Shown here is an 86-nucleotide RNA sequence from Caenorhabditis japonica, a member of the family "mir-75 microRNA precursor family". On this family, see Lau et al., Science 2001: "An abundant class of tiny RNAs with probable regulatory roles in Caenorhabditis elegans". The family has 4 seed sequences and 8 matches in Rfam 15.1. The match comes from Rfam's covariance-model search (62 bits). The family's consensus secondary structure was predicted with RNAalifold.
RNA sequence: UAGCUGAUGGUCUUGCAGUCGGUUGCAAGCUUAAAUACAGACAAUAGUUAUUAAAGCUACCAACCGGCUCCAAGACUGAUUGCCUC
Numbered sequence: 001u002a003g004c005u006g007a008u009g010g011u012c013u014u015g016c017a018g019u020c021g022g023u024u025g026c027a028a029g030c031u032u033a034a035a036u037a038c039a040g041a042c043a044a045u046a047g048u049u050a051u052u053a054a055a056g057c058u059a060c061c062a063a064c065c066g067g068c069u070c071c072a073a074g075a076c077u078g079a080u081u082g083c084c085u086c
Stems, first nucleotide, its partner, number of pairs: 002085002005082001009077003013073003017069009028058005034052004038047001040045001